[Rfam]
Nucleotides: 073
Base pairs, nucleotide, nucleotide: 001072002071003070004069005068006067007066010025011024012023013022027043028042029041030040031039049065050064051063052062053061
Number, partner (000 for none) and nucleotide at each position: 001072g002071g003070u004069u005068c006067a007066c008000u009000a010025g011024c012023u013022c014000a015000g016000u017000u018000g019000g020000c021000a022013g023012a024011g025010c026000a027043c028042c029041u030040g031039a032000c033000u034000u035000u036000u037000a038000a039031u040030c041029a042028g043027g044000g045000u046000g047000u048000c049065c050064c051063g052062a053061g054000u055000u056000c057000g058000a059000a060000u061053c062052u063051c064050g065049g066007g067006u068005g069004a070003g071002c072001c073000a
Rfam assigns this 73-nucleotide RNA from Pectinatus brassicae to the family "tRNA". The organism belongs to Pectinatus, within Bacteria. Rfam describes the family as follows. Transfer RNA (tRNA) molecules are approximately 80 nucleotides in length. Their secondary structure includes four short double-helical elements and three loops (D, anti-codon, and T loops). Further hydrogen bonds mediate the characteristic L-shaped molecular structure. tRNAs have two regions of fundamental functional importance: the anti-codon, which is responsible for specific mRNA codon recognition, and the 3' end, to which the tRNAs corresponding amino acid is attached (by aminoacyl-tRNA synthetases). tRNAs cope with the degeneracy of the genetic code in two manners: having more than one tRNA (with a specific anti-codon) for a particular amino acid; and 'wobble' base-pairing, i.e. permitting non-standard base-pairing at the 3rd anti-codon position. Its family is annotated with triplet codon-amino acid adaptor activity in the Gene Ontology. Rfam classes the family as a transfer RNA.